[Rfam]
RNA: Small nucleolar RNA R44/J54/Z268 family
Organism: Apostasia shenzhenica
RNA sequence: CCUGCAAGUGAUGAGAAACUAGACAGGGACAUCAGCACCUAUAGCUAAUUACCUAAUAGCUAUUGAGGAUGAUGACUUAAGUCUGUUGGGAAUCUCUCUGAUGCAUU
Numbered sequence: 001c002c003u004g005c006a007a008g009u010g011a012u013g014a015g016a017a018a019c020u021a022g023a024c025a026g027g028g029a030c031a032u033c034a035g036c037a038c039c040u041a042u043a044g045c046u047a048a049u050u051a052c053c054u055a056a057u058a059g060c061u062a063u064u065g066a067g068g069a070u071g072a073u074g075a076c077u078u079a080a081g082u083c084u085g086u087u088g089g090g091a092a093u094c095u096c097u098c099u100g101a102u103g104c105a106u107u
Base pairs, nucleotide, nucleotide: 003105004104005103006102